RNA sequence: AGAUGAGAGAUACACCCCGCUCGCAGGGGACUGCGAGCGACACCUGGUCGGCGCUUCACCGGCUCCGACCAGGCCGUGCCCUCGCGCACAACUCCGGGGCCUCCGGCUCCGGGAAUCCUCACCGAUCGGA
Dot-bracket structure: ...((((.((.......(((((((((....)))))))))...(((((.(((.((.......)).))).)))))..((((......))))....((((((((...))))))))...))))))((....)).
RNA: Streptomyces RNA 5676
Organism: Streptomyces benahoarensis